RNA: Streptomyces-metH RNA
RNA sequence: CCGUCCGGCACGCGGAACGUACGGGCCCCCGCGCGCCCCGUGCCGAUACGCUGGACGGAUGCGCCGCCCCCACCGGGCACGCGCACAGCCGACAGCCGUCGCACCCCAGGGAGCUUUUCCAUG
Numbered sequence: 001c002c003g004u005c006c007g008g009c010a011c012g013c014g015g016a017a018c019g020u021a022c023g024g025g026c027c028c029c030c031g032c033g034c035g036c037c038c039c040g041u042g043c044c045g046a047u048a049c050g051c052u053g054g055a056c057g058g059a060u061g062c063g064c065c066g067c068c069c070c071c072a073c074c075g076g077g078c079a080c081g082c083g084c085a086c087a088g089c090c091g092a093c094a095g096c097c098g099u100c101g102c103a104c105c106c107c108a109g110g111g112a113g114c115u116u117u118u119c120c121a122u123g
Stems, first nucleotide, its partner, number of pairs: 060085004066078004088102002091100003